[Rfam]
RNA sequence: AGGGGUGGAUCUGACGUCCCUGAGUAUAUGUGGUGAACCGGAAUUUGCCUGGGGUUUCCUCAUAUUCAUUCAGGAGUGUCAGUUCUCCCU
Numbered sequence: 001a002g003g004g005g006u007g008g009a010u011c012u013g014a015c016g017u018c019c020c021u022g023a024g025u026a027u028a029u030g031u032g033g034u035g036a037a038c039c040g041g042a043a044u045u046u047g048c049c050u051g052g053g054g055u056u057u058c059c060u061c062a063u064a065u066u067c068a069u070u071c072a073g074g075a076g077u078g079u080c081a082g083u084u085c086u087c088c089c090u
Base pairs, nucleotide, nucleotide: 001090002089003088004087005086007084008083011082012081013080014079015078016077018076019074020073021072022071023070024069025068028065029064030063031062032061033059035057036056037055038054039053042050
RNA: mir-670 microRNA precursor family